[Rfam]
RNA sequence: AUGCUCCUAGAUGUGAUUUAGUGUUGGCAGAAAUACCGGGUAAUCUCUCCUAGCACGCCCGGUUAUUAGACCUCGAACUUUCCCUCCCCAUAGAAGUUCGAGGUUUUUUUUGGUCAGGC
Numbered sequence: 001a002u003g004c005u006c007c008u009a010g011a012u013g014u015g016a017u018u019u020a021g022u023g024u025u026g027g028c029a030g031a032a033a034u035a036c037c038g039g040g041u042a043a044u045c046u047c048u049c050c051u052a053g054c055a056c057g058c059c060c061g062g063u064u065a066u067u068a069g070a071c072c073u074c075g076a077a078c079u080u081u082c083c084c085u086c087c088c089c090a091u092a093g094a095a096g097u098u099c100g101a102g103g104u105u106u107u108u109u110u111u112g113g114u115c116a117g118g119c
Stems, first nucleotide, its partner, number of pairs: 035063007068107003071103010
Dot-bracket structure: ..................................(((((((...............)))))))....(((((((((((((.............)))))))))).)))............

Rfam assigns this 119-nucleotide RNA from Halopseudomonas laoshanensis to the family "Pseudomon-1/ErsA RNA". On this family, see Ferrara et al., Environ Microbiol 2015: "Post-transcriptional regulation of the virulence-associated enzyme AlgC by the sigma(22) -dependent small RNA ErsA of Pseudomonas aeruginosa". Functions to regulate the AlgC enzyme. NCBI's taxonomy places the organism under Bacteria, Pseudomonadati, Pseudomonadota, Gammaproteobacteria, Halopseudomonas.